Shown here is a 249-nucleotide RNA from Rummeliibacillus sp. TYF005, a member of the family "BsrG". Taxonomically the source falls in Rummeliibacillus (Bacteria, Bacillati, Bacillota, Caryophanaceae).
[Rfam]
RNA sequence: UAAGAUAGUUGGUACUCAAGGGUGGUUGGCUCACUCCCGUUAGAAAGGGGGUGGUGCCAUGACAGUAUAUGAAGCAUUAAUGCUUGCAAUAGCUUUUGCUGCAUUGAUGGUGUCGAUACUUUCAUUUAAAAACCAUAAAAAAUAACCCAUCCUUGAGUUGCAGCUCAGAUGGGUUACUACCCUGAAAAUAGCCAAUCCCUUUGAGGGAACCAACUAUCUAAUUGACUGUUCGAUGCAAUAACAUCGGCG
Numbered sequence: 001u002a003a004g005a006u007a008g009u010u011g012g013u014a015c016u017c018a019a020g021g022g023u024g025g026u027u028g029g030c031u032c033a034c035u036c037c038c039g040u041u042a043g044a045a046a047g048g049g050g051g052u053g054g055u056g057c058c059a060u061g062a063c064a065g066u067a068u069a070u071g072a073a074g075c076a077u078u079a080a081u082g083c084u085u086g087c088a089a090u091a092g093c094u095u096u097u098g099c100u101g102c103a104u105u106g107a108u109g110g111u112g113u114c115g116a117u118a119c120u121u122u123c124a125u126u127u128a129a130a131a132a133c134c135a136u137a138a139a140a141a142a143u144a145a146c147c148c149a150u151c152c153u154u155g156a157g158u159u160g161c162a163g164c165u166c167a168g169a170u171g172g173g174u175u176a177c178u179a180c181c182c183u184g185a186a187a188a189u190a191g192c193c194a195a196u197c198c199c200u201u202u203g204a205g206g207g208a209a210c211c212a213a214c215u216a217u218c219u220a221a222u223u224g225a226c227u228g229u230u231c232g233a234u235g236c237a238a239u240a241a242c243a244u245c246g247g248c249g
Stems, first nucleotide, its partner, number of pairs: 001221001003219003007215003011211001013195001015157008024147004031054008061123002064120004074087003097115002100112001166184003196209001198207002227249003231246005

For this family Rfam cites "Novel small RNA-encoding genes in the intergenic regions of Bacillus subtilis" (Saito et al., Gene, 2008). bsrE, bsrG and bsrH pair through intermolecular interactions with antisense sRNAs.